narK RNA: a 71-nucleotide RNA from Pseudomonas asplenii. The family's RNA type in Rfam is cis-regulatory element. NCBI's taxonomy places the organism under Bacteria, Pseudomonadati, Pseudomonadales, Pseudomonadaceae, Pseudomonas. The base pairs follow the family's consensus structure, which is taken from published work.
[Rfam]
RNA sequence: GGCGCAAAGCUUGCUAGAACCGGAAUAACAGCCGUCAACGCAGACGGUUGAUUUCACGACAAAGGCGUUGU
Numbered sequence: 001g002g003c004g005c006a007a008a009g010c011u012u013g014c015u016a017g018a019a020c021c022g023g024a025a026u027a028a029c030a031g032c033c034g035u036c037a038a039c040g041c042a043g044a045c046g047g048u049u050g051a052u053u054u055c056a057c058g059a060c061a062a063a064g065g066c067g068u069u070g071u
Base pairs, nucleotide, nucleotide: 030049031048032047033046034045035044036043